[Rfam]
RNA sequence: CUCUUAUCAAGAGAGGUGGAGGGAUAGGGCCCUGUGAAACCCGGCAACCUGUAUUAAUAUAAGGUGCCAAUUCCUGUAGAUAUUUCUACAAGAUAAGAA
Numbered sequence: 001c002u003c004u005u006a007u008c009a010a011g012a013g014a015g016g017u018g019g020a021g022g023g024a025u026a027g028g029g030c031c032c033u034g035u036g037a038a039a040c041c042c043g044g045c046a047a048c049c050u051g052u053a054u055u056a057a058u059a060u061a062a063g064g065u066g067c068c069a070a071u072u073c074c075u076g077u078a079g080a081u082a083u084u085u086c087u088a089c090a091a092g093a094u095a096a097g098a099a
Stems, first nucleotide, its partner, number of pairs: 002098007013042001015041003021032003027075003043068004048064002050061004072091001077088004